Description:
Rfam assigns this 106-nucleotide RNA from Pelagibacterium lacus to the family "EcpR1". From the family's description: Perviously named SmelC291, SmrC10, or Sra33. According to its overproduction phenotype it was renamed Elongated Cell Phenotype RNA1. Lineage of the source: Bacteria > Pseudomonadati > Pseudomonadota > Devosiaceae > Pelagibacterium. On this family, see Robledo et al., PLoS Genet 2015: "A stress-induced small RNA modulates alpha-rhizobial cell cycle progression".
RNA sequence: ACACCCUACGGUAUUCAGGUCCGCCGCAACUCCUGUUCCGUAGGGGGCUGGUCCGGCUCCGGACAAGAGUAGCCUCUUCGACAAACCGGACCGGACCAGCCGCACU
Numbered sequence: 001a002c003a004c005c006c007u008a009c010g011g012u013a014u015u016c017a018g019g020u021c022c023g024c025c026g027c028a029a030c031u032c033c034u035g036u037u038c039c040g041u042a043g044g045g046g047g048c049u050g051g052u053c054c055g056g057c058u059c060c061g062g063a064c065a066a067g068a069g070u071a072g073c074c075u076c077u078u079c080g081a082c083a084a085a086c087c088g089g090a091c092c093g094g095a096c097c098a099g100c101c102g103c104a105c106u
Stems, first nucleotide, its partner, number of pairs: 004045007016035004046101011

Rfam classes the family as a small RNA.